[Rfam]
RNA sequence: CCGUCUCUGUCUAACGCCUCACAUGUGCAGAAAUCGUUGUGGGGCGAUUUCAGGAGGCGGAGAUAU
Numbered sequence: 001c002c003g004u005c006u007c008u009g010u011c012u013a014a015c016g017c018c019u020c021a022c023a024u025g026u027g028c029a030g031a032a033a034u035c036g037u038u039g040u041g042g043g044g045c046g047a048u049u050u051c052a053g054g055a056g057g058c059g060g061a062g063a064u065a066u
Base pairs, nucleotide, nucleotide: 002059003058004057005056006055007054008053015046016045017044018043019042020041021040022039023038
The record is a 66-nucleotide RNA from Trypanosoma brucei, which matches "Trypanosomatid snoRNA TB10Cs4H2" in Rfam. Rfam links the family to the GO terms nucleolus and RNA processing. Rfam 15.1 lists 33 matches to the family in 12 species. On this family, see Liang et al., RNA 2005: "A genome-wide analysis of C/D and H/ACA-like small nucleolar RNAs in Trypanosoma brucei reveals a trypanosome-specific pattern of rRNA modification". It is annotated as an H/ACA-box small nucleolar RNA.